[Rfam]
RNA sequence: GUUGAACUAAAUUGAUUUAUGUUUGGAUACAUUCAAGAAAAAGUGAUUCUCAUCAAUUAAUGUUGUUUGGAUAA
Numbered sequence: 001g002u003u004g005a006a007c008u009a010a011a012u013u014g015a016u017u018u019a020u021g022u023u024u025g026g027a028u029a030c031a032u033u034c035a036a037g038a039a040a041a042a043g044u045g046a047u048u049c050u051c052a053u054c055a056a057u058u059a060a061u062g063u064u065g066u067u068u069g070g071a072u073a074a
Stems, first nucleotide, its partner, number of pairs: 011061007021053002025049004030045004
Dot-bracket structure: ..........(((((((...((..((((.((((........))))))))..)).))))))).............